This 266-nucleotide RNA from Bacilli bacterium VT-13-104 belongs to the Rfam family "BsrG".
Rfam 15.1 lists 614 matches to the family in 343 species.
Rfam's curators write: bsrE, bsrG and bsrH pair through intermolecular interactions with antisense sRNAs. They form type I toxin/antitoxin system that includes an mRNA encoding for a short, toxic peptide (bsrE, bsrG and bsrH) and an antitoxin that is comprised of an antisense RNA. bsrG encodes a 39-amino-acid toxin, and the 180 nucleotide antisense sRNA called SR4 acts as the antitoxin (they overlap by 123 nucleotides).
For this family Rfam cites "Novel small RNA-encoding genes in the intergenic regions of Bacillus subtilis" (Saito et al., Gene, 2008).
The family's RNA type in Rfam is small RNA.

RNA sequence: GACAAUAGCUGAAUAGGUUAACUCAAGGAUGGUUGGCACACUCCCGAAAGGGGGUGAUGCUAAUGACAGUUGCAGAAGGAUUAAUGCUAAUGAUUAGUUUCGGAGCGUUAAUAGUUGCAAUUAUGUCAGAAAAAAACAGUAAAAAAUAAAACCUACCCUUGAGUUUCCGGCUCGUUAGAGGGUAGGUUUUAUUCUCGUAUACGUGUCGAUCCCCUUGGGGGGGGAACCUAGCUAUUGUAUAGACUGAAGGUGUUAGCGCACCUUUG
Numbered sequence: 001g002a003c004a005a006u007a008g009c010u011g012a013a014u015a016g017g018u019u020a021a022c023u024c025a026a027g028g029a030u031g032g033u034u035g036g037c038a039c040a041c042u043c044c045c046g047a048a049a050g051g052g053g054g055u056g057a058u059g060c061u062a063a064u065g066a067c068a069g070u071u072g073c074a075g076a077a078g079g080a081u082u083a084a085u086g087c088u089a090a091u092g093a094u095u096a097g098u099u100u101c102g103g104a105g106c107g108u109u110a111a112u113a114g115u116u117g118c119a120a121u122u123a124u125g126u127c128a129g130a131a132a133a134a135a136a137c138a139g140u141a142a143a144a145a146a147u148a149a150a151a152c153c154u155a156c157c158c159u160u161g162a163g164u165u166u167c168c169g170g171c172u173c174g175u176u177a178g179a180g181g182g183u184a185g186g187u188u189u190u191a192u193u194c195u196c197g198u199a200u201a202c203g204u205g206u207c208g209a210u211c212c213c214c215u216u217g218g219g220g221g222g223g224g225a226a227c228c229u230a231g232c233u234a235u236u237g238u239a240u241a242g243a244c245u246g247a248a249g250g251u252g253u254u255a256g257c258g259c260a261c262c263u264u265u266g
Base pairs, nucleotide, nucleotide: 002238003237004236005235007233008232009231011229017207019205020204022163023162024161025160026159027158028157031153032152033151034150039056040055041054042053043052044051045050065127066126067125068124080091103118105116173197174196210225211224212223213222245266246265247264248263249262250261251260252259253258